The family of this 87-nucleotide sequence from Myotis davidii is "mir-9195 microRNA precursor family". A search with the family's covariance model found it, with a score of 97 bits.

RNA sequence: AGAGGUACUCCGCGGCCAGGGUGGAACGCUUGCCUCGUCGCUGUGGCAGCGAAGCAAGCAUUCCACCAGGCCGCUCAUGCUGCCCAC
Numbered sequence: 001a002g003a004g005g006u007a008c009u010c011c012g013c014g015g016c017c018a019g020g021g022u023g024g025a026a027c028g029c030u031u032g033c034c035u036c037g038u039c040g041c042u043g044u045g046g047c048a049g050c051g052a053a054g055c056a057a058g059c060a061u062u063c064c065a066c067c068a069g070g071c072c073g074c075u076c077a078u079g080c081u082g083c084c085c086a087c
Base pairs, nucleotide, nucleotide: 004084005083006082012074013073014072015071016070017069020067021066022065023064024063025062026061028059029058030057031056032055033054037050038049040047041046